A member of the RNA family "U8 small nucleolar RNA" from Myotis brandtii, 128 nucleotides long. Rfam classes the family as a C/D-box small nucleolar RNA. The literature on the family includes a 2001 paper in Gene by Peculis et al., "The U8 snoRNA gene family: identification and characterization of distinct, functional U8 genes in Xenopus".
[Rfam]
RNA sequence: ACACCAGCCAGGCACCUGUUCCUCCUUUUGGAGGGCAGAUUAGAACAUGAUGAUUGGAGUUUGCAUUAUUCAUGAUUAGUGUCUGCGUAAUCAGGAUUUACAAUACCCUGAUUACUCCUGAGUCUUAA
Numbered sequence: 001a002c003a004c005c006a007g008c009c010a011g012g013c014a015c016c017u018g019u020u021c022c023u024c025c026u027u028u029u030g031g032a033g034g035g036c037a038g039a040u041u042a043g044a045a046c047a048u049g050a051u052g053a054u055u056g057g058a059g060u061u062u063g064c065a066u067u068a069u070u071c072a073u074g075a076u077u078a079g080u081g082u083c084u085g086c087g088u089a090a091u092c093a094g095g096a097u098u099u100a101c102a103a104u105a106c107c108c109u110g111a112u113u114a115c116u117c118c119u120g121a122g123u124c125u126u127a128a
Base pairs, nucleotide, nucleotide: 016038017037018036020035021034022033023032024031025030067085068084071081072080073078087115088114089113090112091111092110093109094108095107
Lineage of the source: Eukaryota > Bilateria > Sarcopterygii > Eutheria > Myotis.